[Rfam]
RNA: Guanidine-I riboswitch aptamer
RNA sequence: UUAAAUGUUUUCUAGGGUUCCGCAAUAAGUAAGUUGGUCCGUGACCGAGAGAAAACUCGCAGCUUAUGGCUGUGUCACGGAAGGAUAAAAGCCUGGGAGAA
Numbered sequence: 001u002u003a004a005a006u007g008u009u010u011u012c013u014a015g016g017g018u019u020c021c022g023c024a025a026u027a028a029g030u031a032a033g034u035u036g037g038u039c040c041g042u043g044a045c046c047g048a049g050a051g052a053a054a055a056c057u058c059g060c061a062g063c064u065u066a067u068g069g070c071u072g073u074g075u076c077a078c079g080g081a082a083g084g085a086u087a088a089a090a091g092c093c094u095g096g097g098a099g100a101a
Stems, first nucleotide, its partner, number of pairs: 007056006015046002020043001021041001022039001023036004058074006076096001078099001082094003